This 85-nucleotide RNA belongs to the Rfam family "ZMP/ZTP riboswitch aptamer (pfl RNA motif)".
The base pairs follow the family's consensus structure, which is taken from published work.

RNA sequence: GCCCGGGACCGUGACUGGCGCUGAGGUGGAGUACCACCGGGGAGCGGUCUCCGUCGAGUCACAGCCGCGCGCCUGGGCGAUCCGU
Numbered sequence: 001g002c003c004c005g006g007g008a009c010c011g012u013g014a015c016u017g018g019c020g021c022u023g024a025g026g027u028g029g030a031g032u033a034c035c036a037c038c039g040g041g042g043a044g045c046g047g048u049c050u051c052c053g054u055c056g057a058g059u060c061a062c063a064g065c066c067g068c069g070c071g072c073c074u075g076g077g078c079g080a081u082c083c084g085u
Base pairs, nucleotide, nucleotide: 003053005051006050007049008048009047010046011045012044015041016040017073018072019071020070021069026037027036028035029034064078065077066076